[Rfam]
RNA sequence: AGGUCAUUUCAAAGAGGGCUUGUUGGACCAUGAAACCAAAAGCUCUUAACGCUGUGACCAGAGAUUGAUGAUCUUCACAGAACAAAACCGGCACUUCAUAGUGUUGUUUUUCUGGGAAGAUAACACU
Numbered sequence: 001a002g003g004u005c006a007u008u009u010c011a012a013a014g015a016g017g018g019c020u021u022g023u024u025g026g027a028c029c030a031u032g033a034a035a036c037c038a039a040a041a042g043c044u045c046u047u048a049a050c051g052c053u054g055u056g057a058c059c060a061g062a063g064a065u066u067g068a069u070g071a072u073c074u075u076c077a078c079a080g081a082a083c084a085a086a087a088c089c090g091g092c093a094c095u096u097c098a099u100a101g102u103g104u105u106g107u108u109u110u111u112c113u114g115g116g117a118a119g120a121u122a123a124c125a126c127u
Stems, first nucleotide, its partner, number of pairs: 002059006014047008023039001026037001072120005079113004087107002090104001092103004
RNA: Small nucleolar RNA SNORA25